RNA sequence: UAUAAAGAAUGAGAGAUUUUUUAUAACUGUCUCUUCCAUCGCUUUGAGGUAUAACAAUAUGGCGAGUCAUCGUUUCGGGCGUCAUUGUUGGCGGAUCGAUUGUUUCUCGUCUACAU
Number, nucleotide and partner (000 for none) at each position: 001u000002a000003u000004a000005a000006a000007g040008a039009a000010u000011g036012a000013g033014a032015g031016a030017u029018u000019u000020u000021u000022u000023a000024u000025a000026a000027c000028u000029g017030u016031c015032u014033c013034u000035u000036c011037c000038a000039u008040c007041g000042c000043u000044u000045u000046g000047a000048g000049g000050u000051a000052u000053a000054a000055c000056a000057a000058u000059a000060u000061g112062g111063c000064g108065a107066g106067u000068c000069a100070u099071c098072g097073u000074u000075u000076c000077g000078g000079g000080c093081g092082u091083c090084a089085u000086u000087g000088u000089u084090g083091g082092c081093g080094g000095a000096u000097c072098g071099a070100u069101u000102g000103u000104u000105u000106c066107u065108c064109g000110u000111c062112u061113a000114c000115a000116u000